[Rfam]
RNA sequence: UCCAGAGUCUUGAAAGGUCGCUUGAUAGGGUACCUUCAAGAGUGAGAUAUGUAAAUUCAGUAACCCUCCUAUGACGUAAAUGGUACGCUACUAACGAAUAAUAAAGUCAAAGGGCGUAGUUAUAGGGUAUGCCGGAUGAAUAAUCCAAUCUUCAUGUUGGCUUUCUAUUAGCAUUCCAACAUGAAUUUAUUGAGUGGUUACGAUUCCU
Number, nucleotide and partner (000 for none) at each position: 001u047002c046003c000004a000005g000006a000007g000008u041009c040010u039011u038012g037013a036014a035015a000016g034017g033018u000019c000020g000021c000022u000023u000024g000025a000026u000027a000028g000029g000030g000031u000032a000033c017034c016035u014036u013037c012038a011039a010040g009041a008042g000043u000044g000045a000046g002047a001048u000049a000050u000051g000052u000053a000054a000055a000056u000057u000058c000059a000060g201061u200062a199063a198064c197065c196066c000067u127068c126069c125070u124071a123072u122073g121074a120075c000076g000077u000078a000079a000080a000081u000082g000083g000084u000085a000086c116087g115088c114089u113090a000091c000092u109093a000094a107095c106096g000097a000098a000099u000100a000101a000102u000103a000104a000105a000106g095107u094108c000109a092110a000111a000112g000113g089114g088115c087116g086117u000118a000119g000120u074121u073122a072123u071124a070125g069126g068127g067128u000129a000130u000131g000132c000133c000134g000135g000136a000137u000138g000139a000140a000141u000142a000143a000144u000145c000146c000147a000148a000149u000150c000151u185152u184153c183154a182155u181156g180157u179158u178159g177160g176161c000162u000163u000164u000165c171166u170167a000168u000169u000170a166171g165172c000173a000174u000175u000176c160177c159178a158179a157180c156181a155182u154183g153184a152185a151186u000187u000188u000189a000190u000191u000192g000193a000194g000195u000196g065197g064198u063199u062200a061201c060202g000203a000204u000205u000206c000207c000208u000
Rfam assigns this 208-nucleotide RNA sequence to the family "RT-7 RNA". The family's RNA type in Rfam is small RNA. The sequence is in the family's curated seed alignment.